Shown here is a 58-nucleotide sequence from Microcaecilia unicolor, a member of the family "U7 small nuclear RNA". A search with the family's covariance model found it, with a score of 51 bits. The base pairs follow the family's consensus structure, which was predicted with PFOLD. The family has 49 seed sequences and 10,439 matches in Rfam 15.1.
[Rfam]
RNA sequence: GUAUGAUUUUAGCUCUUUUAGUAUUUGUCUAGUAGGUUUCCUUAAAGGAAAAGCCCCC
Number, nucleotide and partner (000 for none) at each position: 001g000002u000003a000004u000005g000006a000007u000008u000009u000010u000011a000012g000013c000014u000015c000016u000017u000018u000019u000020a000021g000022u000023a000024u000025u000026u000027g000028u000029c000030u000031a000032g000033u000034a000035g055036g054037u053038u050039u049040c048041c047042u046043u000044a000045a000046a042047g041048g040049a039050a038051a000052a000053g037054c036055c035056c000057c000058c000